Shown here is a 71-nucleotide sequence from Nezara viridula, a member of the family "mir-219 microRNA precursor family". The family's consensus secondary structure was predicted with RNAalifold. Rfam 15.1 lists 1,318 matches to the family in 774 species. A search with the family's covariance model found it, with a score of 66 bits. For this family Rfam cites "Vertebrate microRNA genes" (Lim et al., Science, 2003).
[Rfam]
RNA sequence: CCCAGCUAUGAUUGUCCAAACGCAAUUCUUGUGAAUUUUAUCAAGGAGUGUGUCUGGACAUCAACGCUUGG
Numbered sequence: 001c002c003c004a005g006c007u008a009u010g011a012u013u014g015u016c017c018a019a020a021c022g023c024a025a026u027u028c029u030u031g032u033g034a035a036u037u038u039u040a041u042c043a044a045g046g047a048g049u050g051u052g053u054c055u056g057g058a059c060a061u062c063a064a065c066g067c068u069u070g071g
Stems, first nucleotide, its partner, number of pairs: 002070001004068003009063004014059005021052004026047006
Dot-bracket structure: .(.(((..((((.(((((..((((.((((((..........)))))).))))..)))))))))..))).).